[Rfam]
RNA sequence: CCUCACAGCAGUGUUCUGGAAUCCUACAUGAGGAAUAAGCAUUCAGACCAUCGUAGCAGUGUUCUGGAAUUCUGUGUGAGAGA
Numbered sequence: 001c002c003u004c005a006c007a008g009c010a011g012u013g014u015u016c017u018g019g020a021a022u023c024c025u026a027c028a029u030g031a032g033g034a035a036u037a038a039g040c041a042u043u044c045a046g047a048c049c050a051u052c053g054u055a056g057c058a059g060u061g062u063u064c065u066g067g068a069a070u071u072c073u074g075u076g077u078g079a080g081a082g083a
Stems, first nucleotide, its partner, number of pairs: 002080006009074003013070010024059002027056001028054003033049001

The family of this 83-nucleotide RNA sequence from Pan troglodytes is "mir-1299 microRNA precursor family". The base pairs follow the family's consensus structure, which was predicted with RNAalifold.